A member of the RNA family "S15-Flavobacteria ribosomal protein leader", 77 nucleotides long. The family is grouped with related families in Rfam's "Ribosomal Protein S15 Leader clan". Rfam classes the family as a cis-regulatory leader. A reference for the family is Eckert and Weinberg (2020), "Discovery of 20 novel ribosomal leader candidates in bacteria and archaea", BMC Microbiol. The family's consensus secondary structure is taken from published work.
RNA sequence: UAUAUUUGCAUCUUCAAUUUUUCCGAAAAUCGGAUUGAAUUGAAUACAUAAAAAUCAUUUAAAUAAAUAUUGGCAUG
Numbered sequence: 001u002a003u004a005u006u007u008g009c010a011u012c013u014u015c016a017a018u019u020u021u022u023c024c025g026a027a028a029a030u031c032g033g034a035u036u037g038a039a040u041u042g043a044a045u046a047c048a049u050a051a052a053a054a055u056c057a058u059u060u061a062a063a064u065a066a067a068u069a070u071u072g073g074c075a076u077g
Stems, first nucleotide, its partner, number of pairs: 014043006